[Rfam]
RNA: c-di-GMP-I riboswitch aptamer
Organism: Litchfieldia salsa
RNA sequence: CUUUGAAAAAGGCAAACCAGUCGAAAGAUUGGGACGCAAAGUCACAGACCUAGGGUGUUUCACUACGGUGGCUGGACUACCAAA
Numbered sequence: 001c002u003u004u005g006a007a008a009a010a011g012g013c014a015a016a017c018c019a020g021u022c023g024a025a026a027g028a029u030u031g032g033g034a035c036g037c038a039a040a041g042u043c044a045c046a047g048a049c050c051u052a053g054g055g056u057g058u059u060u061c062a063c064u065a066c067g068g069u070g071g072c073u074g075g076a077c078u079a080c081c082a083a084a
Base pairs, nucleotide, nucleotide: 012037013036017032018031019030020029021028022027040078041077042076043075045074046073047072048069049068050067055063056062057061